[Rfam]
RNA: Bacillaceae-1 RNA
RNA sequence: UGGGGCGGAUGUUCGAUUAAGUUCGGCACGUCGUGUUCCAACAUCGAACGACCUCACUUCGUAUGAG
Numbered sequence: 001u002g003g004g005g006c007g008g009a010u011g012u013u014c015g016a017u018u019a020a021g022u023u024c025g026g027c028a029c030g031u032c033g034u035g036u037u038c039c040a041a042c043a044u045c046g047a048a049c050g051a052c053c054u055c056a057c058u059u060c061g062u063a064u065g066a067g
Base pairs, nucleotide, nucleotide: 011049012048013047014046015045016044017043025039026038028036029035053067054066055065056064